This 177-nucleotide sequence from Ruminococcus sp. CAG:563 belongs to the Rfam family "Lysine riboswitch aptamer". It scores 68 bits against the family's covariance model. Rfam 15.1 lists 3,224 matches to the family in 1,923 species. Riboswitches are metabolite binding domains within certain messenger RNAs that serve as precision sensors for their corresponding targets. The organism belongs to Ruminococcus, within Bacteria.
RNA sequence: AUCAAUGGUAGAGGCGCAUCGAGCUAUCAGUAACAGGUACUUUUUAAGGUCUUAGCAGGACUUACGGUAUCGGUGAAAGGAGCCGUUGCCGAAGGCAGCCGAGGCUGAAGGCUGUGCUGGUAUGUCGGAAUAAGAUCCGCUGUACUGUCGCUUGUUUUGCGGAGAGCUAUCUUUAAA
Numbered sequence: 001a002u003c004a005a006u007g008g009u010a011g012a013g014g015c016g017c018a019u020c021g022a023g024c025u026a027u028c029a030g031u032a033a034c035a036g037g038u039a040c041u042u043u044u045u046a047a048g049g050u051c052u053u054a055g056c057a058g059g060a061c062u063u064a065c066g067g068u069a070u071c072g073g074u075g076a077a078a079g080g081a082g083c084c085g086u087u088g089c090c091g092a093a094g095g096c097a098g099c100c101g102a103g104g105c106u107g108a109a110g111g112c113u114g115u116g117c118u119g120g121u122a123u124g125u126c127g128g129a130a131u132a133a134g135a136u137c138c139g140c141u142g143u144a145c146u147g148u149c150g151c152u153u154g155u156u157u158u159g160c161g162g163a164g165a166g167c168u169a170u171c172u173u174u175a176a177a
Stems, first nucleotide, its partner, number of pairs: 007171005016089003020085002023083003033074002036071005093118002096114003100110001119146006126139004148162004